RNA sequence: GUGCGGUCAAAAAAAUAGUUUUUUUGAACCUUGGCUAUGCCGACAUUCCCGAAAAGAAAAACGAUCCGUUAUACGGAUUGCAGAUACUUUUCCAUGAU
Dot-bracket structure: .......((((((((...))))))))....(((((...)))))..(((.......)))...((((((((...))))))))...((........))...
RNA: Aggregatibacter sRNA 22
Organism: [Mannheimia] succiniciproducens